[Rfam]
MIR5269 microRNA precursor family: an 80-nucleotide RNA from Medicago truncatula.
RNA sequence: UUUGCUUAAAUCAUGGUGGAUCUCACACUUUGGAAAUGGGUUCCGCUUAAAGUGGUGGGUCACACAUUGAUUUAAGCAAA
Number, nucleotide and partner (000 for none) at each position: 001u080002u079003u078004g077005c076006u075007u074008a073009a072010a071011u070012c069013a068014u000015g000016g065017u064018g063019g000020a000021u000022c000023u058024c057025a056026c054027a053028c052029u051030u050031u049032g048033g000034a000035a000036a000037u000038g000039g000040g000041u000042u000043c000044c000045g000046c000047u000048u032049a031050a030051a029052g028053u027054g026055g000056u025057g024058g023059g000060u000061c000062a000063c018064a017065c016066a000067u000068u013069g012070a011071u010072u009073u008074a007075a006076g005077c004078a003079a002080a001
Description:
The family's consensus secondary structure was predicted with RNAalifold. The match comes from Rfam's covariance-model search (66 bits). Its family is annotated with miRNA-mediated post-transcriptional gene silencing and RISC complex in the Gene Ontology. Rfam 15.1 lists 389 matches to the family in 6 species.